RNA sequence: AUAUAAGAGAAAGUUUACUUUUUAGAUACAUUGAAUAACUGGUGUAUCUGACAUAUACUAUAGGCCAGAUACAUUAGUUAUUCGAUGUAUCUAAAGAGUAAAUUUUCUUUUAUAU
Numbered sequence: 001a002u003a004u005a006a007g008a009g010a011a012a013g014u015u016u017a018c019u020u021u022u023u024a025g026a027u028a029c030a031u032u033g034a035a036u037a038a039c040u041g042g043u044g045u046a047u048c049u050g051a052c053a054u055a056u057a058c059u060a061u062a063g064g065c066c067a068g069a070u071a072c073a074u075u076a077g078u079u080a081u082u083c084g085a086u087g088u089a090u091c092u093a094a095a096g097a098g099u100a101a102a103u104u105u106u107c108u109u110u111u112a113u114a115u
Stems, first nucleotide, its partner, number of pairs: 002114006009107005015101011027089018049067002052064001
Rfam assigns this 115-nucleotide RNA from Trifolium medium to the family "MIR2593 microRNA precursor family". Lineage of the source: Eukaryota > Streptophytina > Magnoliopsida > Gunneridae > Trifolium. Rfam links the family to the GO terms miRNA-mediated post-transcriptional gene silencing and RISC complex.